Overview:
Group II catalytic intron D1-D4-4: a 139-nucleotide RNA sequence from Pseudomonas fluorescens. Group II introns are found in rRNA, tRNA and mRNA of organelles in fungi, plants and protists, and also in mRNA in bacteria.
[Rfam]
RNA sequence: CAGUGGGUGCGAAUCCCACCCGGCUACUGUCGCUCCGGCCGGAAGCACUUUGGAGCAGUUCAGGAGGCAACGAAUGGGCUGAAGUAUCUGAAGAAAAGGCUUCUUUAGGAAGUCAGUGACUGUGCAGGCCGUAGCGCGC
Numbered sequence: 001c002a003g004u005g006g007g008u009g010c011g012a013a014u015c016c017c018a019c020c021c022g023g024c025u026a027c028u029g030u031c032g033c034u035c036c037g038g039c040c041g042g043a044a045g046c047a048c049u050u051u052g053g054a055g056c057a058g059u060u061c062a063g064g065a066g067g068c069a070a071c072g073a074a075u076g077g078g079c080u081g082a083a084g085u086a087u088c089u090g091a092a093g094a095a096a097a098g099g100c101u102u103c104u105u106u107a108g109g110a111a112g113u114c115a116g117u118g119a120c121u122g123u124g125c126a127g128g129c130c131g132u133a134g135c136g137c138g139c
Stems, first nucleotide, its partner, number of pairs: 020042005050091005056081006066071001098114006116132003
The match comes from Rfam's covariance-model search (86 bits). The base pairs follow the family's consensus structure.